This 230-nucleotide RNA from Desulfocicer vacuolatum belongs to the Rfam family "HNH endonuclease-associated RNA and ORF (HEARO) RNA".
Rfam classes the family as a non-coding RNA gene.
On this family, see Weinberg et al., Nature 2009: "Exceptional structured noncoding RNAs revealed by bacterial metagenome analysis".
RNA sequence: GUCAACAACCCCUGAGCUAAAGACUCAGGGGCUUGCAAGGCAACUUGUAAGCCCGGUUGAUUAGCCUAAGCCCCAGAAAACUUGGUGGCUACGUUACAUUGGAAUAUAUAGUCAUCCCAAGGCACUCCACACGCCGAAGGCUCUGAGAUCAGUGUUUAAACAUCUCUGAGGGUAGGAGAAGUGAUGCUGAUAUUGUAAACCCGUUGUAACAUUGGCGAAGUGGAUCACUC
Numbered sequence: 001g002u003c004a005a006c007a008a009c010c011c012c013u014g015a016g017c018u019a020a021a022g023a024c025u026c027a028g029g030g031g032c033u034u035g036c037a038a039g040g041c042a043a044c045u046u047g048u049a050a051g052c053c054c055g056g057u058u059g060a061u062u063a064g065c066c067u068a069a070g071c072c073c074c075a076g077a078a079a080a081c082u083u084g085g086u087g088g089c090u091a092c093g094u095u096a097c098a099u100u101g102g103a104a105u106a107u108a109u110a111g112u113c114a115u116c117c118c119a120a121g122g123c124a125c126u127c128c129a130c131a132c133g134c135c136g137a138a139g140g141c142u143c144u145g146a147g148a149u150c151a152g153u154g155u156u157u158a159a160a161c162a163u164c165u166c167u168g169a170g171g172g173u174a175g176g177a178g179a180a181g182u183g184a185u186g187c188u189g190a191u192a193u194u195g196u197a198a199a200c201c202c203g204u205u206g207u208a209a210c211a212u213u214g215g216c217g218a219a220g221u222g223g224a225u226c227a228c229u230c
Stems, first nucleotide, its partner, number of pairs: 001061006010031002012028002017022001032051008064216003068212001069090004093210006100203003112146002116140002121135003126224005148191009160182002163179004167174002